Shown here is a 166-nucleotide RNA from Streptomyces sp. Mg1, a member of the family "c-di-AMP riboswitch aptamer (ydaO/yuaA leader)".
A search with the family's covariance model found it, with a score of 60 bits.
Lineage of the source: Bacteria > Actinomycetes > Kitasatosporales > Streptomycetaceae > Streptomyces.

[Rfam]
RNA sequence: CGACUACCAUCGCGCGCGGCAGGAGCGGGGGAACCAGGUAAGCCGCUGUUCCGGAUCCAUGUCCGGGACGGCUCGGGGUGAAGCCGUACAUGUGCUGUUCAUGUACGGCCGGACAUCUCCAGUCCGAAUCCGACAGCUCACCUCGCAGGCGACGGAGAGGAAAUCG
Numbered sequence: 001c002g003a004c005u006a007c008c009a010u011c012g013c014g015c016g017c018g019g020c021a022g023g024a025g026c027g028g029g030g031g032a033a034c035c036a037g038g039u040a041a042g043c044c045g046c047u048g049u050u051c052c053g054g055a056u057c058c059a060u061g062u063c064c065g066g067g068a069c070g071g072c073u074c075g076g077g078g079u080g081a082a083g084c085c086g087u088a089c090a091u092g093u094g095c096u097g098u099u100c101a102u103g104u105a106c107g108g109c110c111g112g113a114c115a116u117c118u119c120c121a122g123u124c125c126g127a128a129u130c131c132g133a134c135a136g137c138u139c140a141c142c143u144c145g146c147a148g149g150c151g152a153c154g155g156a157g158a159g160g161a162a163a164u165c166g
Base pairs, nucleotide, nucleotide: 001148005024007022025146026145027144028143029142030141035075076131077130078129084108085107086106087105088104089103090102091101092100111125112124113123114122